[Rfam]
RNA sequence: GUAUGCUUGGCUCCUCAUACGCCAUCCAUGGAGGCCAUCGACAAUCCGGUAGACUCUGUGUAUGGCAUACAGGGAGCCAGGCAUAC
Numbered sequence: 001g002u003a004u005g006c007u008u009g010g011c012u013c014c015u016c017a018u019a020c021g022c023c024a025u026c027c028a029u030g031g032a033g034g035c036c037a038u039c040g041a042c043a044a045u046c047c048g049g050u051a052g053a054c055u056c057u058g059u060g061u062a063u064g065g066c067a068u069a070c071a072g073g074g075a076g077c078c079a080g081g082c083a084u085a086c
Base pairs, nucleotide, nucleotide: 001086002085003084004083005082006081008079009078010077011076012075013074014073018069019068021066022065023064024063027060028059029058
Shown here is an 86-nucleotide RNA sequence from Chenopodium quinoa, a member of the family "mir-160 microRNA precursor family". The family has 7 seed sequences and 1,502 matches in Rfam 15.1. The match comes from Rfam's covariance-model search (50 bits). On this family, see Rhoades et al., Cell 2002: "Prediction of plant microRNA targets".